[Rfam]
RNA sequence: CGUCAUGAAUGGCAGCGACGAGCCCUGGCUCGCUGCCCAGCAACCCCCUCGCGGCGGGGUGCUCCGGGUGAGGACCGGACGAGGCGCAACCGCGUCUCGUCAGCGCGCACG
Number, nucleotide and partner (000 for none) at each position: 001c000002g075003u074004c073005a000006u000007g000008a000009a000010u000011g037012g036013c035014a034015g033016c032017g000018a000019c000020g000021a030022g029023c000024c000025c000026u000027g000028g000029c022030u021031c000032g016033c015034u014035g013036c012037c011038c000039a063040g062041c061042a000043a000044c059045c058046c057047c000048c054049u053050c000051g000052c000053g049054g048055c000056g000057g046058g045059g044060u000061g041062c040063u039064c000065c000066g000067g000068g000069u000070g000071a000072g000073g004074a003075c002076c000077g000078g000079a100080c099081g098082a097083g096084g095085c094086g093087c092088a000089a000090c000091c000092g087093c086094g085095u084096c083097u082098c081099g080100u079101c000102a000103g000104c000105g000106c000107g000108c000109a000110c000111g000
This 111-nucleotide RNA from Streptomyces sp. NP160 belongs to the Rfam family "SAM (S-adenosyl methionine) riboswitch aptamer". Clan: SAM clan. Pairs were carried over by alignment from the consensus structure, which is taken from published work. For this family Rfam cites "The aptamer core of SAM-IV riboswitches mimics the ligand-binding site of SAM-I riboswitches" (Weinberg et al., RNA, 2008).